[Rfam]
Nucleotides: 102
Stems, first nucleotide, its partner, number of pairs: 001098005007092002010090002014086001016081004022076001028064003032060002
Number, partner (000 for none) and nucleotide at each position: 001098g002097g003096c004095u005094g006000c007092u008091c009000u010090g011089a012000g013000u014086g015000c016081a017080g018079u019078g020000c021000u022076g023000u024000u025000u026000a027000c028064a029063a030062c031000u032060a033059a034000u035000u036000g037000a038000u039000c040000a041000u042000a043000a044000c045000c046000a047000g048000c049000u050000a051000c052000a053000g054000u055000u056000u057000c058000u059033u060032u061000u062030g063029u064028u065000c066000c067000u068000u069000u070000u071000c072000c073000a074000c075000u076022c077000c078019c079018a080017c081016u082000g083000c084000u085000u086014c087000a088000c089011u090010u091008g092007a093000c094005u095004a096003g097002c098001c099000u100000a101000a102000a
Rfam assigns this 102-nucleotide sequence from Microcebus murinus to the family "Y RNA". The base pairs follow the family's consensus structure, which is taken from published work. The family's RNA type in Rfam is non-coding RNA gene.